[Rfam]
RNA sequence: GUGACACGCUUAUGGGGUAUGACUUGCUUCAGUGGGGCUUUGGUGCUCACUGAGUUUGCAUCUUGAAUGUGUCACU
Numbered sequence: 001g002u003g004a005c006a007c008g009c010u011u012a013u014g015g016g017g018u019a020u021g022a023c024u025u026g027c028u029u030c031a032g033u034g035g036g037g038c039u040u041u042g043g044u045g046c047u048c049a050c051u052g053a054g055u056u057u058g059c060a061u062c063u064u065g066a067a068u069g070u071g072u073c074a075c076u
Stems, first nucleotide, its partner, number of pairs: 001075007010066003014062002017059003021056003029053008037044002